[Rfam]
RNA sequence: GUCCCAUUAAAGUCUGUAUUUACCUGCCUACAAAAGGAGGAUUCUCUUUGGAGUAGACUCAGUAGACAAACACAACGCAGGUGGGAAAUUCGGUGGUUCGCACUGUCCAACUUGGGCAGAGAGUACUUGUGAUUCUCUGUCUAGAUCUCUUGAGAGAUUCCUGGCGUGGAAACGCUUGGGUGUUGCCAUAAGAAAUCAAACCAGUCUAGGCUGGUUAUGGGAGGCUUCACGGGCAGUUGGUCCACUUACUAUUCAGUGGUGGGCUGUUGAGUGCAAUAUACAGACUGUGACUUGUUCAUAGAACCCGAUACCGAUUAUUUUAGUGGGAC
Number, nucleotide and partner (000 for none) at each position: 001g329002u328003c327004c326005c000006a000007u323008u322009a321010a000011a000012g000013u283014c000015u000016g000017u000018a000019u000020u000021u000022a082023c081024c080025u079026g078027c000028c000029u000030a000031c000032a000033a000034a000035a000036g000037g060038a059039g058040g000041a000042u000043u000044c000045u000046c000047u000048u000049u000050g000051g000052a000053g000054u000055a000056g000057a000058c039059u038060c037061a000062g000063u000064a000065g000066a000067c000068a000069a000070a000071c000072a000073c000074a000075a000076c000077g000078c026079a025080g024081g023082u022083g000084g000085g000086a000087a000088a000089u000090u000091c313092g312093g311094u310095g309096g000097u000098u000099c000100g000101c000102a000103c000104u000105g234106u233107c232108c231109a000110a000111c000112u000113u000114g000115g000116g000117c000118a000119g000120a000121g000122a000123g000124u000125a000126c000127u000128u000129g000130u000131g000132a000133u000134u000135c000136u000137c000138u000139g000140u000141c000142u000143a000144g000145a158146u157147c156148u155149c154150u000151u000152g000153a000154g149155a148156g147157a146158u145159u000160c000161c000162u000163g176164g175165c174166g173167u172168g000169g000170a000171a000172a167173c166174g165175c164176u163177u000178g000179g000180g230181u229182g228183u000184u000185g225186c224187c000188a000189u000190a000191a000192g000193a000194a000195a000196u000197c000198a000199a216200a215201c214202c000203a000204g000205u000206c000207u000208a000209g000210g000211c000212u000213g000214g201215u200216u199217a000218u000219g000220g000221g000222a000223g000224g186225c185226u000227u000228c182229a181230c180231g108232g107233g106234c105235a000236g000237u000238u000239g000240g000241u000242c000243c000244a000245c000246u000247u000248a000249c000250u000251a000252u000253u000254c000255a000256g000257u000258g000259g000260u000261g000262g000263g000264c000265u000266g000267u000268u000269g000270a000271g000272u000273g000274c000275a000276a000277u000278a000279u000280a000281c000282a000283g013284a000285c301286u300287g299288u298289g297290a296291c000292u000293u000294g000295u000296u290297c289298a288299u287300a286301g285302a000303a000304c000305c000306c000307g000308a000309u095310a094311c093312c092313g091314a000315u000316u000317a000318u000319u000320u000321u009322a008323g007324u000325g000326g004327g003328a002329c001

Shown here is a 329-nucleotide RNA from Hansenula ciferrii, a member of the family "Nuclear RNase P". It is annotated as a ribozyme.